Source information: A member of the RNA family "mir-789 microRNA precursor family" from Caenorhabditis briggsae, 96 nucleotides long.
[Rfam]
RNA sequence: UUGCCCGACUUCGGAUUCACGUGGUCAUCCAGGCGGUGCACGUUAAAAGAUAUAAAUGCCCUGCCUGGGUCACCAUGUGAAUAGGGAAUACGGUCA
Numbered sequence: 001u002u003g004c005c006c007g008a009c010u011u012c013g014g015a016u017u018c019a020c021g022u023g024g025u026c027a028u029c030c031a032g033g034c035g036g037u038g039c040a041c042g043u044u045a046a047a048a049g050a051u052a053u054a055a056a057u058g059c060c061c062u063g064c065c066u067g068g069g070u071c072a073c074c075a076u077g078u079g080a081a082u083a084g085g086g087a088a089u090a091c092g093g094u095c096a
Stems, first nucleotide, its partner, number of pairs: 001096001003094003007089001010086003014082001018079006025072001027070010038059002044056001
For this family Rfam cites "Dynamic expression of small non-coding RNAs, including novel microRNAs and piRNAs/21U-RNAs, during Caenorhabditis elegans development" (Kato et al., Genome Biol, 2009). The family's consensus secondary structure was predicted with RNAalifold.